[Rfam]
RNA sequence: UCGAAUAGAAGAGGCGCAGAACUUAGGAGUCGCCACGGUUAGGCAGAUCAGUGCCCGUGAGCCGUGGUUAAAGGAAGUUUUGCCGAAGUGUGGUGACCCUGAUCCGUUACCGUGCUGGGGUCAGUCUUAACAGGGCUGGCACUGUCGCUUACCGCGGAGAGCUUCCUACGAU
Numbered sequence: 001u002c003g004a005a006u007a008g009a010a011g012a013g014g015c016g017c018a019g020a021a022c023u024u025a026g027g028a029g030u031c032g033c034c035a036c037g038g039u040u041a042g043g044c045a046g047a048u049c050a051g052u053g054c055c056c057g058u059g060a061g062c063c064g065u066g067g068u069u070a071a072a073g074g075a076a077g078u079u080u081u082g083c084c085g086a087a088g089u090g091u092g093g094u095g096a097c098c099c100u101g102a103u104c105c106g107u108u109a110c111c112g113u114g115c116u117g118g119g120g121u122c123a124g125u126c127u128u129a130a131c132a133g134g135g136c137u138g139g140c141a142c143u144g145u146c147g148c149u150u151a152c153c154g155c156g157g158a159g160a161g162c163u164u165c166c167u168a169c170g171a172u
Base pairs, nucleotide, nucleotide: 008165009164010163011162016083017082018081019080020079021078022077023076024075032068033067034066035065036064037063038062039061087116088115089114090113091112092111093110094109095108096107097106117143118142120140121139122138123137124136125135126134127133145157146156147155148154

Lysine riboswitch aptamer: a 172-nucleotide RNA from Secundilactobacillus collinoides. About the family: Riboswitches are metabolite binding domains within certain messenger RNAs that serve as precision sensors for their corresponding targets. Pairs were carried over by alignment from the consensus structure, which is taken from published work. The match comes from Rfam's covariance-model search (102 bits).